[Rfam]
RNA sequence: ACACUAUGAUUUUACUGUGAAGAAUGUUAUAUCUCCGUUGUCGGCUUGCCGACUAUGGCGAUACACGGGCUUCGCAAUAAACCCAUCGGACCCGGGGGCAGUACCCGGCGCCUCCACCAUUUUUUUCCGGCAUAUAUGUCGGCUUUUGGGGGCGAACCAGGAUCGACGAGGGCGUAAAGGAUGUUUCCGUCGCUCGGCAUGGUACCCACCGUUAUCGGGCCAUUAUGAUAGUUGCAAAUGACAACUACGCGGAAGUAGCAGUCGCUGCAUAGUCAGCGCCUAAACUUCAUUUAAGUCCAUCACCGUCGCAGGUGCUGGCGGGGUUCGGGAGGCACCUGGCAACAGAAGCCUUCCAUU
Numbered sequence: 001a002c003a004c005u006a007u008g009a010u011u012u013u014a015c016u017g018u019g020a021a022g023a024a025u026g027u028u029a030u031a032u033c034u035c036c037g038u039u040g041u042c043g044g045c046u047u048g049c050c051g052a053c054u055a056u057g058g059c060g061a062u063a064c065a066c067g068g069g070c071u072u073c074g075c076a077a078u079a080a081a082c083c084c085a086u087c088g089g090a091c092c093c094g095g096g097g098g099c100a101g102u103a104c105c106c107g108g109c110g111c112c113u114c115c116a117c118c119a120u121u122u123u124u125u126u127c128c129g130g131c132a133u134a135u136a137u138g139u140c141g142g143c144u145u146u147u148g149g150g151g152g153c154g155a156a157c158c159a160g161g162a163u164c165g166a167c168g169a170g171g172g173c174g175u176a177a178a179g180g181a182u183g184u185u186u187c188c189g190u191c192g193c194u195c196g197g198c199a200u201g202g203u204a205c206c207c208a209c210c211g212u213u214a215u216c217g218g219g220c221c222a223u224u225a226u227g228a229u230a231g232u233u234g235c236a237a238a239u240g241a242c243a244a245c246u247a248c249g250c251g252g253a254a255g256u257a258g259c260a261g262u263c264g265c266u267g268c269a270u271a272g273u274c275a276g277c278g279c280c281u282a283a284a285c286u287u288c289a290u291u292u293a294a295g296u297c298c299a300u301c302a303c304c305g306u307c308g309c310a311g312g313u314g315c316u317g318g319c320g321g322g323g324u325u326c327g328g329g330a331g332g333c334a335c336c337u338g339g340c341a342a343c344a345g346a347a348g349c350c351u352u353c354c355a356u357u
Stems, first nucleotide, its partner, number of pairs: 040053005057194005067187003070183001072181002082172003086169003092108005109154007195211003200222003205218002321337004328353006